Record summary:
The family of this 136-nucleotide RNA sequence from Lysobacter sp. Root494 is "SAM riboswitch aptamer (S box leader)". Lineage of the source: Bacteria > Pseudomonadati > Lysobacterales > Lysobacteraceae > Lysobacter.
RNA sequence: CAUCCAUCGAGACCGGCUGAGGGACAGGCCCUUUGACGCCGGGGCAACCUACCGCUUCCACCGCAUUGCGGUGACGGCGGGAAGGUGCCAACUCCUGCGGACCAGCCGCUUCGCGCUGUGAUCCGGAAGAUGGUUG
Numbered sequence: 001c002a003u004c005c006a007u008c009g010a011g012a013c014c015g016g017c018u019g020a021g022g023g024a025c026a027g028g029c030c031c032u033u034u035g036a037c038g039c040c041g042g043g044g045c046a047a048c049c050u051a052c053c054g055c056u057u058c059c060a061c062c063g064c065a066u067u068g069c070g071g072u073g074a075c076g077g078c079g080g081g082a083a084g085g086u087g088c089c090a091a092c093u094c095c096u097g098c099g100g101a102c103c104a105g106c107c108g109c110u111u112c113g114c115g116c117u118g119u120g121a122u123c124c125g126g127a128a129g130a131u132g133g134u135u136g
Stems, first nucleotide, its partner, number of pairs: 001136002004133005013042005021031003025097004043089004048085002050081001052079001093128001098125004103120001